Rfam assigns this 132-nucleotide sequence from Microtus ochrogaster to the family "Small nucleolar RNA SNORA70". Lineage of the source: Eukaryota > Metazoa > Euteleostomi > Mammalia > Microtus. Rfam's curators write: snoRNA U70 seems to be exclusive to mammals and is a member of the H/ACA class of snoRNA which contain H (ANANNA) and ACA box motifs. By type it is an H/ACA-box small nucleolar RNA. A search with the family's covariance model found it, with a score of 47 bits.
[Rfam]
RNA sequence: UGGCAACCAAUUAAGCUAACCAGGUUCCUUUACUCUCAGAGGCCUGCUCUGAGGUGGCGAUGGAGCCCUCCUUCUUGGUAGUGUAGCAGCCUAUUCCCUAUAUGACUGCCCGAAGGGACUUGGGAGACAAUG
Numbered sequence: 001u002g003g004c005a006a007c008c009a010a011u012u013a014a015g016c017u018a019a020c021c022a023g024g025u026u027c028c029u030u031u032a033c034u035c036u037c038a039g040a041g042g043c044c045u046g047c048u049c050u051g052a053g054g055u056g057g058c059g060a061u062g063g064a065g066c067c068c069u070c071c072u073u074c075u076u077g078g079u080a081g082u083g084u085a086g087c088a089g090c091c092u093a094u095u096c097c098c099u100a101u102a103u104g105a106c107u108g109c110c111c112g113a114a115g116g117g118a119c120u121u122g123g124g125a126g127a128c129a130a131u132g
Stems, first nucleotide, its partner, number of pairs: 004051002019048001021046002025042002028039001077120003087108003091104001